[Rfam]
RNA sequence: UGCCUUAUGUGUUACCUGUUCAUUGCUGUUCAGAUGAAUGUGGUGUCAACUAGGGCAGACAUUAAUGCAUGAGGUGGCUGAUGAAAGGCGUUAACAUCUGUGCCUUUCAAAAGUGUCAUGUUAUGGACAUCA
Numbered sequence: 001u002g003c004c005u006u007a008u009g010u011g012u013u014a015c016c017u018g019u020u021c022a023u024u025g026c027u028g029u030u031c032a033g034a035u036g037a038a039u040g041u042g043g044u045g046u047c048a049a050c051u052a053g054g055g056c057a058g059a060c061a062u063u064a065a066u067g068c069a070u071g072a073g074g075u076g077g078c079u080g081a082u083g084a085a086a087g088g089c090g091u092u093a094a095c096a097u098c099u100g101u102g103c104c105u106u107u108c109a110a111a112a113g114u115g116u117c118a119u120g121u122u123a124u125g126g127a128c129a130u131c132a
Stems, first nucleotide, its partner, number of pairs: 002056006010048002013045004017040008068125004074119005079112001082109003085105001089100002

Overview: Small nucleolar RNA SNORA13: a 132-nucleotide RNA sequence from Sinocyclocheilus grahami. Taxonomically the source falls in Sinocyclocheilus (Eukaryota, Gnathostomata, Euteleostomi, Actinopterygii). The base pairs follow the family's consensus structure, which was predicted with CMfinder. About the family: ACA13 is a member of the H/ACA class of snoRNA that guide the sites of modification of uridines to pseudouridines. The family's RNA type in Rfam is H/ACA-box small nucleolar RNA. The match comes from Rfam's covariance-model search (56 bits).